[Rfam]
Nucleotides: 066
Base pairs, nucleotide, nucleotide: 003066004065005064007061008060009059010058015055016054017053018052020049021048
Number, partner (000 for none) and nucleotide at each position: 001000g002000c003066g004065g005064u006000u007061c008060c009059g010058g011000u012000u013000c014000c015055c016054g017053c018052c019000c020049c021048g022000g023000c024000c025000g026000c027000g028000u029000g030000u031000c032000a033000u034000c035000c036000g037000a038000c039000c040000g041000c042000g043000a044000g045000c046000g047000a048021c049020g050000a051000a052018g053017g054016c055015g056000a057000c058010c059009c060008g061007g062000c063000g064005a065004c066003c
The record is a 66-nucleotide sequence from Sphaerisporangium melleum, which matches "L31-Actinobacteria ribosomal protein leader" in Rfam. Taxonomically the source falls in Sphaerisporangium (Bacteria, Bacillati, Actinomycetes, Streptosporangiaceae). A search with the family's covariance model found it, with a score of 43 bits. The family's consensus secondary structure is taken from published work. Rfam classes the family as a cis-regulatory leader.